RNA sequence: GGUUUGCAUGAACGAUUGAAGCGGCAUCCUCUUUAAAUUCUUUCUUUACGAAUUUAAAAAGAUUGAGCGCAAAGCGUGGCCCUUU
Numbered sequence: 001g002g003u004u005u006g007c008a009u010g011a012a013c014g015a016u017u018g019a020a021g022c023g024g025c026a027u028c029c030u031c032u033u034u035a036a037a038u039u040c041u042u043u044c045u046u047u048a049c050g051a052a053u054u055u056a057a058a059a060a061g062a063u064u065g066a067g068c069g070c071a072a073a074g075c076g077u078g079g080c081c082c083u084u085u
Stems, first nucleotide, its partner, number of pairs: 012077003016073002021068002026063003032058008
Annotation: Rfam assigns this 85-nucleotide RNA sequence from Flavobacterium macacae to the family "Flavo-1 RNA". Rfam 15.1 lists 7,497 matches to the family in 411 species. The match comes from Rfam's covariance-model search (50 bits).